[Rfam]
RNA sequence: CCGUGUUCCGUGACAGACCGGCUGGCCCCCGCCAGUCCGGCGCCAGCCGAGUCAGUCACAGAACACGGCA
Number, nucleotide and partner (000 for none) at each position: 001c068002c067003g066004u065005g064006u063007u062008c061009c000010g059011u058012g057013a056014c055015a000016g053017a052018c051019c049020g048021g047022c000023u000024g044025g043026c042027c000028c000029c000030c000031g000032c000033c000034a000035g000036u000037c000038c000039g000040g000041c000042g026043c025044c024045a000046g000047c021048c020049g019050a000051g018052u017053c016054a000055g014056u013057c012058a011059c010060a000061g008062a007063a006064c005065a004066c003067g002068g001069c000070a000

mir-3017 microRNA precursor family: a 70-nucleotide RNA sequence from Acyrthosiphon pisum. A search with the family's covariance model found it, with a score of 58 bits. For this family Rfam cites "Bioinformatic prediction, deep sequencing of microRNAs and expression analysis during phenotypic plasticity in the pea aphid, Acyrthosiphon pisum" (Legeai et al., BMC Genomics, 2010).